[Rfam]
RNA: tRNA
Organism: Drosophila mauritiana
RNA sequence: GUUUUAAUAGUUUAAUAAAAACAUUGGUCUUGUAAAUCAAAAAUAAGAUUAUUUCUUUUAAAACU
Numbered sequence: 001g002u003u004u005u006a007a008u009a010g011u012u013u014a015a016u017a018a019a020a021a022c023a024u025u026g027g028u029c030u031u032g033u034a035a036a037u038c039a040a041a042a043a044u045a046a047g048a049u050u051a052u053u054u055c056u057u058u059u060a061a062a063a064c065u
Stems, first nucleotide, its partner, number of pairs: 001064007010022004024040005045057004